Shown here is an 84-nucleotide sequence from Kingdonia uniflora, a member of the family "Small nucleolar RNA R16". The source organism's lineage runs through Eukaryota, Tracheophyta, Euphyllophyta, Spermatophyta and Kingdonia. A search with the family's covariance model found it, with a score of 78 bits. Rfam links the family to the GO terms RNA processing and nucleolus. On this family, see Marker et al., Curr Biol 2002: "Experimental RNomics: identification of 140 candidates for small non-messenger RNAs in the plant Arabidopsis thaliana".

RNA sequence: AAAGGCAUAUGAUGAAAUUACCUUAUCCUACACACUGAAAUUAUUCCGUGUUGAUUAAAACUCCGCUUAUUGUCUGAUGCCUUA
Numbered sequence: 001a002a003a004g005g006c007a008u009a010u011g012a013u014g015a016a017a018u019u020a021c022c023u024u025a026u027c028c029u030a031c032a033c034a035c036u037g038a039a040a041u042u043a044u045u046c047c048g049u050g051u052u053g054a055u056u057a058a059a060a061c062u063c064c065g066c067u068u069a070u071u072g073u074c075u076g077a078u079g080c081c082u083u084a
Stems, first nucleotide, its partner, number of pairs: 003082005